[Rfam]
Nucleotides: 124
Base pairs, nucleotide, nucleotide: 011026012025013024014023015022016021028051029050030049033046034045036042037041095111096110097109098108099107100106
Number, partner (000 for none) and nucleotide at each position: 001000u002000g003000u004000g005000u006000c007000a008000a009000g010000a011026a012025g013024a014023a015022a016021c017000a018000g019000c020000c021016g022015u023014u024013u025012c026011u027000c028051a029050c030049c031000u032000u033046a034045c035000a036042g037041c038000a039000a040000a041037g042036c043000u044000a045034g046033u047000a048000a049030g050029g051028u052000u053000a054000u055000g056000a057000a058000u059000u060000a061000c062000u063000u064000a065000c066000g067000a068000u069000u070000u071000u072000u073000u074000u075000c076000g077000g078000u079000g080000a081000a082000u083000g084000u085000g086000g087000u088000a089000a090000u091000u092000g093000a094000g095111g096110g097109c098108g099107g100106c101000u102000u103000u104000a105000u106100g107099c108098c109097g110096c111095c112000c113000u114000u115000u116000u117000a118000u119000u120000a121000u122000u123000u124000a